[Rfam]
RNA sequence: CUGCUAGUCAUGCUGACCACAGCCGCCCAGGCAUGGUUGACGGGGCUACCGAGGUACACCAUCAACAGUUGGUCCGAACUGAAGUGGCAG
Numbered sequence: 001c002u003g004c005u006a007g008u009c010a011u012g013c014u015g016a017c018c019a020c021a022g023c024c025g026c027c028c029a030g031g032c033a034u035g036g037u038u039g040a041c042g043g044g045g046c047u048a049c050c051g052a053g054g055u056a057c058a059c060c061a062u063c064a065a066c067a068g069u070u071g072g073u074c075c076g077a078a079c080u081g082a083a084g085u086g087g088c089a090g
Stems, first nucleotide, its partner, number of pairs: 001090003004086001

The family of this 90-nucleotide sequence is "Small nucleolar RNA Z256".
It is one of the family's seed sequences.
The base pairs follow the family's consensus structure.